Overview: This 589-nucleotide part of an RNA from Candidatus Psychracetigena formicireducens belongs to the Rfam family "Archaeal small subunit ribosomal RNA". It scores 1294 bits against the family's covariance model. For this family Rfam cites "The comparative RNA web (CRW) site: an online database of comparative sequence and structure information for ribosomal, intron, and other RNAs" (Cannone et al., BMC Bioinformatics, 2002).
RNA sequence: UGGCGGGGAGACACUACAACGAGUGACGCGUGCGGUUCAAUCAGAUUCUACACCGUGAACCUCACCAGGAGCGACAGCAGGAUGAAGGUCAGCCUAAAGGGCUUACCUGACACGCUGAGCGGAGAUACAUAGUCGACGUCAGCCUGUGCAGUGAUGUGACUUGUUAAAUCAAGUAACAGGCGAGACCCGUGUUAACAAUUACUCUCGAAAGAAGAACAUUGUUGAGACUGCCUUGGUAACAAGGAGGAAGGUGCGGGCUACGUCAGGUGGCAUGUCCCUAAUCCCCUGGGCUACACGCGCGCGGCAAUGGUAUAUUCAAUUGGAUGCAACACCGAGAGGUGAAGCAAAUCCCCUAAAGUAUAUCUCAGUCCAAAUUGAGGGUUGCAACCCACCCUCAUGACGCUGGAAUUCGUAGUAAUCGUUCGUUAUCAGCGAACGGUGAAUAAGUCCCUGUCUCUUGCACACACCGCCCGUCAAACCAACCGAGUUAUGCAGAGAAGAAGCUCAUAUGGGAAGAUUUUUUGUAUGACAAGGUAGGUUAAGUCGUCACAAGGUAUCUGUAGGGGAACCUGCAGAUGGAUCACCUCCU
Dot-bracket structure: (((((.(((((((..((..((((((.((((((((((.....(.(........).).........(((((.(...((((.(......(((.(((.......))).)))...)..))))...((.((((..(.(((((((...(((((((((....)))..((((......))))..)))))).....((((.(((((((...((.(....)..))....)))))))..((.(((((....))))).)).....))))....)))).)))...)))))))....).)))))...)).)))))))).)...(((((((......((..((..((((....))))..))....))......)))))))......(....(((((((........)))))))....).....))))).....((((((((.......))))))))......))...)))))))))).))..(.(..((.(.((((.(((..(((((((((((((....(((....)))....)))))))))))))..))).))))..).))...)..).((((((((((....))))))))))...........
Its Rfam clan is "SSU clan". NCBI's taxonomy places the organism under Bacteria, Bacillati, Candidatus Lithacetigenota, Candidatus Psychracetigena.